[Rfam]
RNA: Xanthomonadaceae sRNA asX1
Organism: Arenimonas donghaensis
RNA sequence: CACCUACCGCGGCCAACGCCGGGGGGCGUCGACCAGACUGAACAGGGGCUGGUCAGGCGCGCGGUAGGGAUGCCAGGGCCUGGCGUUCCCGGGGGGGAACGCCAGGCCCUUUUUU
Number, nucleotide and partner (000 for none) at each position: 001c000002a000003c068004c067005u066006a065007c064008c063009g062010c061011g060012g058013c057014c000015a000016a029017c028018g027019c026020c025021g000022g000023g000024g000025g020026g019027c018028g017029u016030c000031g054032a053033c052034c051035a050036g049037a000038c046039u045040g000041a000042a000043c000044a000045g039046g038047g000048g000049c036050u035051g034052g033053u032054c031055a000056g000057g013058c012059g000060c011061g010062c009063g008064g007065u006066a005067g004068g003069g000070a000071u000072g000073c000074c000075a110076g109077g108078g107079c106080c105081u104082g103083g102084c101085g100086u099087u098088c097089c096090c095091g000092g000093g000094g000095g090096g089097g088098a087099a086100c085101g084102c083103c082104a081105g080106g079107c078108c077109c076110u075111u000112u000113u000114u000115u000